Rfam assigns this 98-nucleotide RNA sequence from Nicotiana tabacum to the family "Small nucleolar RNA snoR27". Rfam links the family to the GO terms RNA processing and nucleolus. Lineage of the source: Eukaryota > Streptophytina > Spermatophyta > Mesangiospermae > Nicotiana. By type it is a C/D-box small nucleolar RNA.
[Rfam]
RNA sequence: GAUGGAUCCAUGUUGUGGUACAGAUUUUUAAACUGCGUUAUCUUGCUAAAUUCCCAGUUUCUGGGAUUGAAGAAACAUUUUAUUAUCUGAGAUCCAAC
Numbered sequence: 001g002a003u004g005g006a007u008c009c010a011u012g013u014u015g016u017g018g019u020a021c022a023g024a025u026u027u028u029u030a031a032a033c034u035g036c037g038u039u040a041u042c043u044u045g046c047u048a049a050a051u052u053c054c055c056a057g058u059u060u061c062u063g064g065g066a067u068u069g070a071a072g073a074a075a076c077a078u079u080u081u082a083u084u085a086u087c088u089g090a091g092a093u094c095c096a097a098c
Stems, first nucleotide, its partner, number of pairs: 001098001003096005